[Rfam]
RNA sequence: CGAGUCGACCGGGCGGUCGCGUUGGUGUUCUCCCGAGAACGCCGCCGAGGAACGUCCGGACUCCACAGAGCAGGGUGGUUGUUAACGGCAACCCGGGGUGACCCGCGGGAAAGUGCCACAGAGAAGAGACCGCCGGCCUCGUGCCGGUAAGGGUGAAACGGUGGGGUAAGAGCCCACCAGCACCCCGGGCGACCGGGGUGGCUUGGUAAACCCCACCCGGAGCAAGGCCAAGAAAGGCCACCGCCGCGAGGCGGUGGCUGGCGCAGGCACUCGAGGGCUGCUCGCCCAAGUCUGCGGGUAGGCCGCAAGAGCAUGCCGGCAACGGCACGCCUAGAUGGAUGACCGCCGCCGGCGGCCGAAAGGCCGUCGCGCACAGAAUCCGGCGUACAGGUCGACUCGUCCG
Number, nucleotide and partner (000 for none) at each position: 001c399002g398003a397004g396005u395006c394007g393008a392009c391010c390011g388012g347013g346014c345015g344016g343017u342018c341019g000020c047021g046022u000023u044024g043025g042026u041027g040028u039029u038030c037031u000032c000033c000034c000035g000036a000037g030038a029039a028040c027041g026042c025043c024044g023045c000046c021047g020048a000049g000050g000051a000052a386053c385054g384055u000056c383057c382058g381059g380060a379061c222062u221063c220064c219065a000066c000067a000068g283069a282070g281071c280072a000073g218074g217075g216076u215077g214078g092079u091080u090081g089082u088083u000084a000085a000086c000087g000088g082089c081090a080091a079092c078093c107094c105095g104096g103097g102098g000099u000100g000101a000102c097103c096104c095105g094106c000107g093108g213109g212110a000111a000112a000113g211114u210115g207116c206117c205118a000119c000120a000121g000122a000123g000124a000125a000126g000127a000128g000129a000130c152131c151132g148133c147134c146135g145136g144137c143138c000139u000140c000141g000142u000143g137144c136145c135146g134147g133148u132149a000150a000151g131152g130153g000154u000155g000156a000157a000158a000159c000160g178161g177162u176163g175164g174165g173166g000167u000168a000169a000170g000171a000172g000173c165174c164175c163176a162177c161178c160179a000180g202181c200182a199183c198184c197185c196186c195187g194188g193189g000190c000191g000192a000193c188194c187195g186196g185197g184198g183199u182200g181201g000202c180203u000204u000205g117206g116207u115208a000209a000210a114211c113212c109213c108214c077215a076216c075217c074218c073219g064220g063221a062222g061223c000224a000225a000226g304227g303228c302229c301230a000231a000232g000233a000234a000235a000236g000237g000238c000239c000240a000241c000242c000243g000244c000245c000246g000247c000248g000249a000250g000251g000252c000253g000254g000255u000256g000257g000258c000259u000260g000261g000262c000263g295264c294265a293266g292267g291268c290269a000270c000271u000272c000273g000274a000275g287276g286277g285278c284279u000280g071281c070282u069283c068284g278285c277286c276287c275288a000289a000290g268291u267292c266293u265294g264295c263296g000297g000298g000299u000300a000301g229302g228303c227304c226305g000306c000307a000308a000309g000310a000311g330312c329313a000314u327315g326316c325317c324318g323319g000320c000321a000322a000323c318324g317325g316326c315327a314328c000329g312330c311331c000332u000333a000334g000335a000336u000337g000338g000339a000340u000341g018342a017343c016344c015345g014346c013347c012348g000349c000350c000351g000352g000353c000354g000355g000356c000357c000358g000359a000360a000361a000362g000363g000364c000365c000366g000367u000368c000369g000370c000371g000372c000373a000374c000375a000376g000377a000378a000379u060380c059381c058382g057383g056384c054385g053386u052387a000388c011389a000390g010391g009392u008393c007394g006395a005396c004397u003398c002399g001400u000401c000402c000403g000
RNA: Bacterial RNase P class A
Organism: Actinoplanes sp. ATCC 53533